[Rfam]
RNA sequence: GCAUAAUGCAUUUAAGGAACUACAGGUGUGAUGUGUGAUUUCAUUAAACGUAUCACAGCCGUAGUUGCCUUACUGUAUUUGUGA
Numbered sequence: 001g002c003a004u005a006a007u008g009c010a011u012u013u014a015a016g017g018a019a020c021u022a023c024a025g026g027u028g029u030g031a032u033g034u035g036u037g038a039u040u041u042c043a044u045u046a047a048a049c050g051u052a053u054c055a056c057a058g059c060c061g062u063a064g065u066u067g068c069c070u071u072a073c074u075g076u077a078u079u080u081g082u083g084a
Stems, first nucleotide, its partner, number of pairs: 003082002005079006015070003018066004023061001025059001027057009